[Rfam]
The record is a 248-nucleotide sequence from Vitis rotundifolia, which matches "Early nodulin 40" in Rfam. Rfam links the family to the GO term nodulation. The organism belongs to Vitis, within Eukaryota. Pairs were carried over by alignment from the consensus structure, which is taken from published work. It scores 83 bits against the family's covariance model.

RNA sequence: AUGGAUACUUCUGAUAUGGAAUCCAUCCAUAACUUGUACUCUUGAAAAAGUAUGGGAUCUGGGGGUGAGGGAUUCUAAAGCCCUCCCCCCAUAAUUCAACAGUUUGCUUGUGCGGGAUCAGCCACCAUCCACUCAGGUAUCAGCUACUAGCCGCAGUGCAUGAUCUCUCUAUCUCUCUAUCUGAGGUUUUGGCUGACGCCAAGCAAACCGGCAAGUCACAGAACGGCAUGGACUCAGUUAGGGCUCGU
Numbered sequence: 001a002u003g004g005a006u007a008c009u010u011c012u013g014a015u016a017u018g019g020a021a022u023c024c025a026u027c028c029a030u031a032a033c034u035u036g037u038a039c040u041c042u043u044g045a046a047a048a049a050g051u052a053u054g055g056g057a058u059c060u061g062g063g064g065g066u067g068a069g070g071g072a073u074u075c076u077a078a079a080g081c082c083c084u085c086c087c088c089c090c091a092u093a094a095u096u097c098a099a100c101a102g103u104u105u106g107c108u109u110g111u112g113c114g115g116g117a118u119c120a121g122c123c124a125c126c127a128u129c130c131a132c133u134c135a136g137g138u139a140u141c142a143g144c145u146a147c148u149a150g151c152c153g154c155a156g157u158g159c160a161u162g163a164u165c166u167c168u169c170u171a172u173c174u175c176u177c178u179a180u181c182u183g184a185g186g187u188u189u190u191g192g193c194u195g196a197c198g199c200c201a202a203g204c205a206a207a208c209c210g211g212c213a214a215g216u217c218a219c220a221g222a223a224c225g226g227c228a229u230g231g232a233c234u235c236a237g238u239u240a241g242g243g244c245u246c247g248u
Stems, first nucleotide, its partner, number of pairs: 062090003102208006118198001231246002234243002